[Rfam]
RNA sequence: UGAUGCCCCCCUCAUCCCUGAAGAUCCCUGAUGGGUGAGGAAACGACAAGCUGGACU
Numbered sequence: 001u002g003a004u005g006c007c008c009c010c011c012u013c014a015u016c017c018c019u020g021a022a023g024a025u026c027c028c029u030g031a032u033g034g035g036u037g038a039g040g041a042a043a044c045g046a047c048a049a050g051c052u053g054g055a056c057u
Base pairs, nucleotide, nucleotide: 006040007039009037011035012034013033014032015031016030023057025055026054027053
RNA: Antizyme RNA frameshifting stimulation element
Organism: Sparus aurata